Shown here is an 83-nucleotide sequence from Equus caballus, a member of the family "mir-500 microRNA precursor family".
A reference for the family is Zhou et al. (2009), "In silico detection and characteristics of novel microRNA genes in the Equus caballus genome using an integrated ab initio and comparative genomic approach", Genomics.
The sequence is in the family's curated seed alignment.
RNA sequence: GCUCUCCCUCUCUCAUCCUUCGUCCCUGGGUGAGAGUGCUUUCCGAAUGCAAUGCACCUGGGCAAGGAUUCCAGAGGGCGAGG
Numbered sequence: 001g002c003u004c005u006c007c008c009u010c011u012c013u014c015a016u017c018c019u020u021c022g023u024c025c026c027u028g029g030g031u032g033a034g035a036g037u038g039c040u041u042u043c044c045g046a047a048u049g050c051a052a053u054g055c056a057c058c059u060g061g062g063c064a065a066g067g068a069u070u071c072c073a074g075a076g077g078g079c080g081a082g083g
Stems, first nucleotide, its partner, number of pairs: 015069006025062008037051003